[Rfam]
RNA sequence: CCGGUCCGUCUCGUGGACGCCCCUGACCAUAGGCCGCCGGUCCCGGCUACCCUGGCCGCGUGCGCCCUUCCGGGACGUUCCGCGGGAGCGUCCGGGGCAAGCGCAAAGCCGACAGCCGUCGCAUCCCAGGGAGCCCCUUACAUG
Numbered sequence: 001c002c003g004g005u006c007c008g009u010c011u012c013g014u015g016g017a018c019g020c021c022c023c024u025g026a027c028c029a030u031a032g033g034c035c036g037c038c039g040g041u042c043c044c045g046g047c048u049a050c051c052c053u054g055g056c057c058g059c060g061u062g063c064g065c066c067c068u069u070c071c072g073g074g075a076c077g078u079u080c081c082g083c084g085g086g087a088g089c090g091u092c093c094g095g096g097g098c099a100a101g102c103g104c105a106a107a108g109c110c111g112a113c114a115g116c117c118g119u120c121g122c123a124u125c126c127c128a129g130g131g132a133g134c135c136c137c138u139u140a141c142a143u144g
Base pairs, nucleotide, nucleotide: 061105062104063103064102068097069096070095071094072093073092074091108122109121111120112119113118
RNA: Streptomyces-metH RNA